[Rfam]
RNA: DUF3800-X RNA
RNA sequence: AUGCGUGUAAGACCUGCCCGAAGCAAUGAAGGCCGAGGAGUCGGUACGGGAGUGUGUAGGGCAGGCUCGCAA
Numbered sequence: 001a002u003g004c005g006u007g008u009a010a011g012a013c014c015u016g017c018c019c020g021a022a023g024c025a026a027u028g029a030a031g032g033c034c035g036a037g038g039a040g041u042c043g044g045u046a047c048g049g050g051a052g053u054g055u056g057u058a059g060g061g062c063a064g065g066c067u068c069g070c071a072a
Stems, first nucleotide, its partner, number of pairs: 002071004013065007032045005